[Rfam]
RNA sequence: CCCUUGGAGUACUAUAUCAAACAAGAGUAGAUUAACUUAGGAUAAUCGAAAUAGGGUACGACGAACAGGGAA
Numbered sequence: 001c002c003c004u005u006g007g008a009g010u011a012c013u014a015u016a017u018c019a020a021a022c023a024a025g026a027g028u029a030g031a032u033u034a035a036c037u038u039a040g041g042a043u044a045a046u047c048g049a050a051a052u053a054g055g056g057u058a059c060g061a062c063g064a065a066c067a068g069g070g071a072a
Stems, first nucleotide, its partner, number of pairs: 001070004009059005022054001024052001030047003035043001